[Rfam]
Rfam assigns this 87-nucleotide sequence to the family "GA-cis RNA".
The sequence is in the family's curated seed alignment.
Rfam classes the family as a small RNA.
Nucleotides: 087
Base pairs, nucleotide, nucleotide: 008045009044010043011042012041013040015031016030017029018028019027020026054077055076056075058073059072063068
Number, partner (000 for none) and nucleotide at each position: 001000g002000u003000g004000a005000g006000g007000a008045g009044a010043a011042a012041u013040c014000a015031a016030u017029a018028u019027g020026a021000c022000g023000g024000a025000g026020u027019c028018a029017u030016a031015u032000a033000u034000u035000g036000g037000g038000a039000u040013g041012a042011u043010u044009u045008c046000g047000a048000c049000g050000a051000u052000u053000u054077g055076c056075c057000g058073u059072c060000c061000a062000g063068c064000g065000u066000g067000a068063g069000g070000g071000a072059g073058g074000g075056g076055g077054c078000a079000a080000u081000a082000c083000a084000u085000a086000u087000u